This 84-nucleotide RNA sequence from Pangasianodon hypophthalmus belongs to the Rfam family "mir-181 microRNA precursor family". The match comes from Rfam's covariance-model search (76 bits). The family's consensus secondary structure was predicted with PFOLD.
[Rfam]
RNA sequence: UUGCCCCGGUGAACAUUCAACGCUGUCGGUGAGUUUGAGCUAAACUUACAAAACCAUCGACCGUUGAUUGUACCCCAUGGCCAA
Numbered sequence: 001u002u003g004c005c006c007c008g009g010u011g012a013a014c015a016u017u018c019a020a021c022g023c024u025g026u027c028g029g030u031g032a033g034u035u036u037g038a039g040c041u042a043a044a045c046u047u048a049c050a051a052a053a054c055c056a057u058c059g060a061c062c063g064u065u066g067a068u069u070g071u072a073c074c075c076c077a078u079g080g081c082c083a084a
Stems, first nucleotide, its partner, number of pairs: 001084003004080002008076001014070002017067006025061007033054004